[Rfam]
Rfam assigns this 107-nucleotide sequence from Bacillaceae bacterium SAS-127 to the family "SAM riboswitch aptamer (S box leader)". The base pairs follow the family's consensus structure, which is taken from published work. NCBI's taxonomy places the organism under Bacteria, Bacillati, Bacillota, Bacilli, Bacillaceae.
RNA sequence: AAUUUAUCACGAGUGACUGAGGGAUAGGCCCGAUGACGUCCAGCAACCCCCAUAUGAUGGGAAGGUGCUAAUUCCUACAGAAUGAUUUUCAUUCUGAAAGAUAAAUC
Numbered sequence: 001a002a003u004u005u006a007u008c009a010c011g012a013g014u015g016a017c018u019g020a021g022g023g024a025u026a027g028g029c030c031c032g033a034u035g036a037c038g039u040c041c042a043g044c045a046a047c048c049c050c051c052a053u054a055u056g057a058u059g060g061g062a063a064g065g066u067g068c069u070a071a072u073u074c075c076u077a078c079a080g081a082a083u084g085a086u087u088u089u090c091a092u093u094c095u096g097a098a099a100g101a102u103a104a105a106u107c
Base pairs, nucleotide, nucleotide: 002106003105004104005103006102007101008100013041015040016039017038021031022030023029025077026076027075028074042069043068044067045066047065048064049061050060051059052058073099078096079095080094081093082092083091
It scores 92 bits against the family's covariance model.